[Rfam]
RNA sequence: CCUGGCAACUCUGGAGAGCGGCAGCCGGCACAGCCAGCGCUGCCCACCGAAGGGGCGCGCGUUUGCCUCGAUCGUUUCCGACGAUCGGCUGGGGACGCAAUCUCUCAGGUAUCGAGGACAGAGGGGUAACG
Numbered sequence: 001c002c003u004g005g006c007a008a009c010u011c012u013g014g015a016g017a018g019c020g021g022c023a024g025c026c027g028g029c030a031c032a033g034c035c036a037g038c039g040c041u042g043c044c045c046a047c048c049g050a051a052g053g054g055g056c057g058c059g060c061g062u063u064u065g066c067c068u069c070g071a072u073c074g075u076u077u078c079c080g081a082c083g084a085u086c087g088g089c090u091g092g093g094g095a096c097g098c099a100a101u102c103u104c105u106c107a108g109g110u111a112u113c114g115a116g117g118a119c120a121g122a123g124g125g126g127u128a129a130c131g
Base pairs, nucleotide, nucleotide: 006126009123010122011121012120013119020044021043022042023041024040025039046110047109048108049106050105053104054103055102059098060097061096062095063094064093
Dot-bracket structure: .....(..(((((......((((((.............)))))).(((((..(((...((((((............................))))))...))))).)))........)))))..).....
Notes
Rfam assigns this 131-nucleotide RNA sequence from Chitinasiproducens palmae to the family "Glycine riboswitch aptamer". NCBI's taxonomy places the organism under Bacteria, Pseudomonadati, Burkholderiales, Burkholderiaceae, Chitinasiproducens.